[Rfam]
RNA sequence: AUUCCCUUUCCGAAUUGGAUAGCUGAUAAUCUGCCCCCGGUUUGCUACUGGGAAUUCAGGAGAGUUCAUGUAC
Numbered sequence: 001a002u003u004c005c006c007u008u009u010c011c012g013a014a015u016u017g018g019a020u021a022g023c024u025g026a027u028a029a030u031c032u033g034c035c036c037c038c039g040g041u042u043u044g045c046u047a048c049u050g051g052g053a054a055u056u057c058a059g060g061a062g063a064g065u066u067c068a069u070g071u072a073c
Stems, first nucleotide, its partner, number of pairs: 036052006

The record is a 73-nucleotide RNA from Prodigiosinella confusarubida, which matches "PyrD leader" in Rfam. The family's RNA type in Rfam is cis-regulatory leader. Gene Ontology term of the family: regulation of gene expression. The base pairs follow the family's consensus structure, which is taken from published work.